[Rfam]
RNA: tRNA
Organism: Armatimonadota bacterium
RNA sequence: CCCAUCGUAGCUCAGCCUGGUAGCAGCGUCCGUUUGAAGAACGGAAGGCCGGUGGUUCAAGUCCACCCGAUGGGA
Number, nucleotide and partner (000 for none) at each position: 001c074002c073003c072004a071005u070006c069007g068008u000009a000010g027011c026012u025013c000014a000015g000016c000017c000018u000019g000020g000021u000022a000023g000024c000025a012026g011027c010028g000029u045030c044031c043032g042033u041034u000035u000036g000037a000038a000039g000040a000041a033042c032043g031044g030045a029046a000047g000048g000049c000050c000051g067052g066053u065054g064055g063056u000057u000058c000059a000060a000061g000062u000063c055064c054065a053066c052067c051068c007069g006070a005071u004072g003073g002074g001075a000